[Rfam]
RNA: mir-358 microRNA precursor family
RNA sequence: AUUCACCGCGGAUGGCGACCUGGCCAGGCAUUCCAACUGUCCAUCCAAGUACUUUAUCGGACAAUUGGUAUCCCUGUCAAGGUCUCAAUCCUCUCGGCGAGCUUUUU
Numbered sequence: 001a002u003u004c005a006c007c008g009c010g011g012a013u014g015g016c017g018a019c020c021u022g023g024c025c026a027g028g029c030a031u032u033c034c035a036a037c038u039g040u041c042c043a044u045c046c047a048a049g050u051a052c053u054u055u056a057u058c059g060g061a062c063a064a065u066u067g068g069u070a071u072c073c074c075u076g077u078c079a080a081g082g083u084c085u086c087a088a089u090c091c092u093c094u095c096g097g098c099g100a101g102c103u104u105u106u107u
Base pairs, nucleotide, nucleotide: 002101003100004099006097007096010091011090012089013088015086017084018083019082020081021079022078023077024076026075027074028073030071031070033068034067035066036065038063039062040061041060